[Rfam]
RNA sequence: GGCGGGAGAGCAAGGAACGAAAUCCAAGCGCAGCUGAAGUGUUAAAAGAAAACAGCUGCUUUUGGGAUUCCGUUGUCUGCUCACACGCCA
Dot-bracket structure: ........((((....(((.(((((((..(((((((................)))))))..)))).))).)))....)))).........
Numbered sequence: 001g002g003c004g005g006g007a008g009a010g011c012a013a014g015g016a017a018c019g020a021a022a023u024c025c026a027a028g029c030g031c032a033g034c035u036g037a038a039g040u041g042u043u044a045a046a047a048g049a050a051a052a053c054a055g056c057u058g059c060u061u062u063u064g065g066g067a068u069u070c071c072g073u074u075g076u077c078u079g080c081u082c083a084c085a086c087g088c089c090a
Stems, first nucleotide, its partner, number of pairs: 009081004017073003021069003024065004030059007